[Rfam]
RNA sequence: GCCUUGUGCCUGAAAGGGCGACGGUGCUGAACCGGAGCGAGAAGUCAGCAGAGGCCAUAGUAGCCGCUGGUUGUGGGCGAAGGGC
Numbered sequence: 001g002c003c004u005u006g007u008g009c010c011u012g013a014a015a016g017g018g019c020g021a022c023g024g025u026g027c028u029g030a031a032c033c034g035g036a037g038c039g040a041g042a043a044g045u046c047a048g049c050a051g052a053g054g055c056c057a058u059a060g061u062a063g064c065c066g067c068u069g070g071u072u073g074u075g076g077g078c079g080a081a082g083g084g085c
Stems, first nucleotide, its partner, number of pairs: 001027002004023001007020005045052002054085003063078003068073001

About this RNA
The record is an 85-nucleotide RNA from Denitromonas iodatirespirans, which matches "Group II catalytic intron D1-D4-1" in Rfam. Rfam describes the family as follows. Group II introns are found in rRNA, tRNA and mRNA of organelles in fungi, plants and protists, and also in mRNA in bacteria. The base pairs follow the family's consensus structure. Its family is annotated with Group II intron splicing in the Gene Ontology.